[Rfam]
RNA sequence: AUGACCUUACUUGAACAGGAUCUUUUUUGUAGGAUUGUAUUUCGGAAUCCUUGAGCUCUAAGGAGUCAGGACCCAACAUCUAGUGGAUGAACAAAGGCCUCUUGACCAAAACGUGAUUAGUGGCUUUGUGGUGCAGCUUGUUAGUCCACAGUUACACAGGGGAACAUUCUCUGCUAAUGCAAACUAGUUGUGAGGGUCAAGUAGUUGUUUGACAAAUU
Numbered sequence: 001a002u003g004a005c006c007u008u009a010c011u012u013g014a015a016c017a018g019g020a021u022c023u024u025u026u027u028u029g030u031a032g033g034a035u036u037g038u039a040u041u042u043c044g045g046a047a048u049c050c051u052u053g054a055g056c057u058c059u060a061a062g063g064a065g066u067c068a069g070g071a072c073c074c075a076a077c078a079u080c081u082a083g084u085g086g087a088u089g090a091a092c093a094a095a096g097g098c099c100u101c102u103u104g105a106c107c108a109a110a111a112c113g114u115g116a117u118u119a120g121u122g123g124c125u126u127u128g129u130g131g132u133g134c135a136g137c138u139u140g141u142u143a144g145u146c147c148a149c150a151g152u153u154a155c156a157c158a159g160g161g162g163a164a165c166a167u168u169c170u171c172u173g174c175u176a177a178u179g180c181a182a183a184c185u186a187g188u189u190g191u192g193a194g195g196g197u198c199a200a201g202u203a204g205u206u207g208u209u210u211g212a213c214a215a216a217u218u
Stems, first nucleotide, its partner, number of pairs: 001038002003035001005033003013027003017023002043069001045067002048064006078217002081214001097205002101201007110168002113165001120157003126151006135142002171190001173188004
Plant small nucleolar RNA U3: a 218-nucleotide sequence from Camellia sinensis. Its Rfam clan is "U3 clan". The family's RNA type in Rfam is C/D-box small nucleolar RNA. The family's consensus secondary structure is taken from published work. Rfam 15.1 lists 3,759 matches to the family in 258 species. Lineage of the source: Eukaryota > Embryophyta > asterids > Camellia > Camellia sinensis. Rfam describes the family as follows. Small nucleolar RNAs (snoRNAs) are involved in the processing and modification of rRNA in the nucleolus. There are two main classes of snoRNAs: the box C/D class, and the box H/ACA class.